[Rfam]
RNA sequence: GGUUGGCAGCUGCAUACAGCUGUUUCAAGAUUUGGCUUUAGGGUGGAGAGCU
Numbered sequence: 001g002g003u004u005g006g007c008a009g010c011u012g013c014a015u016a017c018a019g020c021u022g023u024u025u026c027a028a029g030a031u032u033u034g035g036c037u038u039u040a041g042g043g044u045g046g047a048g049a050g051c052u
Base pairs, nucleotide, nucleotide: 003028004027005026006023007022008021009020010019011018034052035051036050037049038048039047